The record is an 82-nucleotide RNA from Clostridium sp. L2-50, which matches "S10-Clostridia ribosomal protein leader" in Rfam.

[Rfam]
RNA sequence: UGAUAGCGUUGAAACGGAGGUUGCUGUAUCGCAUAGAUACAGGUUUUUCGUGGAGCGAAUGUCAAUAAAGAAUUACUGACGA
Numbered sequence: 001u002g003a004u005a006g007c008g009u010u011g012a013a014a015c016g017g018a019g020g021u022u023g024c025u026g027u028a029u030c031g032c033a034u035a036g037a038u039a040c041a042g043g044u045u046u047u048u049c050g051u052g053g054a055g056c057g058a059a060u061g062u063c064a065a066u067a068a069a070g071a072a073u074u075a076c077u078g079a080c081g082a
Stems, first nucleotide, its partner, number of pairs: 014051007024042007060081005066075002

A search with the family's covariance model found it, with a score of 69 bits.
The family's RNA type in Rfam is cis-regulatory leader.